[Rfam]
RNA sequence: AUCGGUCCUCGGUAGUGGCCGCCGGAACCCCGUUCCGGCCGCUUCGAUCGAAGGCCGUC
Numbered sequence: 001a002u003c004g005g006u007c008c009u010c011g012g013u014a015g016u017g018g019c020c021g022c023c024g025g026a027a028c029c030c031c032g033u034u035c036c037g038g039c040c041g042c043u044u045c046g047a048u049c050g051a052a053g054g055c056c057g058u059c
Base pairs, nucleotide, nucleotide: 003057004056005055006054007053009051010050011049012048013047017043018042019041021039022038023037024036025035026034027033028032
RNA: Actino-pnp RNA
Organism: Gordonia rhizosphera